Rfam assigns this 87-nucleotide sequence from Neoundibacterium piscinae to the family "c-di-GMP-I riboswitch aptamer". It scores 84 bits against the family's covariance model. Pairs were carried over by alignment from the consensus structure, which is taken from published work. The organism belongs to Neoundibacterium, within Bacteria. Rfam links the family to the GO term cyclic-di-GMP binding.
RNA sequence: CUGUGUUCAGGGCAAACUUGCUGAAAAGCAGGGACGCAAAGCCUCCGGCCUAAUGUCUGAAAAGAUAAUGGUAGCGGGGUUACCGGU
Numbered sequence: 001c002u003g004u005g006u007u008c009a010g011g012g013c014a015a016a017c018u019u020g021c022u023g024a025a026a027a028g029c030a031g032g033g034a035c036g037c038a039a040a041g042c043c044u045c046c047g048g049c050c051u052a053a054u055g056u057c058u059g060a061a062a063a064g065a066u067a068a069u070g071g072u073a074g075c076g077g078g079g080u081u082a083c084c085g086g087u
Stems, first nucleotide, its partner, number of pairs: 012037002017032006040081004045077003048072003055066004